RNA sequence: GCAGUCACUGUAAACAUCCUACACUCAGCUUUAGUGUGGAUGAAACGCUGAGAGGAGGGUGUUUGCUUUGACUGG
Number, nucleotide and partner (000 for none) at each position: 001g000002c074003a073004g072005u071006c070007a000008c000009u000010g066011u065012a064013a063014a062015c061016a060017u059018c058019c057020u056021a000022c054023a000024c052025u051026c050027a049028g048029c047030u000031u000032u000033a000034g000035u000036g000037u000038g000039g000040a000041u000042g000043a000044a000045a000046c000047g029048c028049u027050g026051a025052g024053a000054g022055g000056a020057g019058g018059g017060u016061g015062u014063u013064u012065g011066c010067u000068u000069u000070g006071a005072c004073u003074g002075g000